[Rfam]
RNA: L31-Firmicutes ribosomal protein leader
RNA sequence: CUCUGGUUCGACGUAAUGUCAAUGGGACCAGGGCGGAAAGAG
Numbered sequence: 001c002u003c004u005g006g007u008u009c010g011a012c013g014u015a016a017u018g019u020c021a022a023u024g025g026g027a028c029c030a031g032g033g034c035g036g037a038a039a040g041a042g
Stems, first nucleotide, its partner, number of pairs: 001033008